[Rfam]
RNA: mir-221 microRNA precursor family
Organism: Polypterus senegalus
RNA sequence: UUUGGCGUGCACCUGGCAUACAAUGUAGAUUUCUGUGUUAUUCUACUAACAGCUACAUUGUCUGCUGGGUUUCAUGCUUCCUAG
Numbered sequence: 001u002u003u004g005g006c007g008u009g010c011a012c013c014u015g016g017c018a019u020a021c022a023a024u025g026u027a028g029a030u031u032u033c034u035g036u037g038u039u040a041u042u043c044u045a046c047u048a049a050c051a052g053c054u055a056c057a058u059u060g061u062c063u064g065c066u067g068g069g070u071u072u073c074a075u076g077c078u079u080c081c082u083a084g
Base pairs, nucleotide, nucleotide: 013068014067015066016065017064018063020061021060022059023058024057025056026055027054028053033052034051035050036049